[Rfam]
RNA: Small nucleolar RNA Z122
RNA sequence: UUUGGGAAAUGAUGCCAAAACCAAAAAAUUGUGACUGAGGCAUAAGCUCUGCUGAAUAUUAUUUGCACGUCAGUCUGAUCCCAUA
Numbered sequence: 001u002u003u004g005g006g007a008a009a010u011g012a013u014g015c016c017a018a019a020a021c022c023a024a025a026a027a028a029u030u031g032u033g034a035c036u037g038a039g040g041c042a043u044a045a046g047c048u049c050u051g052c053u054g055a056a057u058a059u060u061a062u063u064u065g066c067a068c069g070u071c072a073g074u075c076u077g078a079u080c081c082c083a084u085a
Stems, first nucleotide, its partner, number of pairs: 001085001003083005